[Rfam]
RNA: mir-8834 microRNA precursor family
RNA sequence: AGGAGCAACAGCCCCAGUGGCGGGGCCAGCUCUGGAGCCCUGGAGUCAGCCCUCCCAGUAGCUCCAGAGCUCUCCGUGUGCAGAGCCUGGAGGCUCCGGGGCGGG
Number, nucleotide and partner (000 for none) at each position: 001a000002g097003g096004a095005g094006c093007a000008a000009c089010a088011g087012c085013c000014c083015c000016a000017g000018u000019g000020g077021c076022g075023g074024g073025g072026c000027c000028a071029g070030c069031u068032c067033u066034g065035g064036a063037g000038c000039c000040c058041u057042g056043g000044a000045g000046u000047c000048a000049g000050c000051c000052c000053u000054c000055c000056c042057a041058g040059u000060a000061g000062c000063u036064c035065c034066a033067g032068a031069g030070c029071u028072c025073u024074c023075c022076g021077u020078g000079u000080g000081c000082a000083g014084a000085g012086c000087c011088u010089g009090g000091a000092g000093g006094c005095u004096c003097c002098g000099g000100g000101g000102c000103g000104g000105g000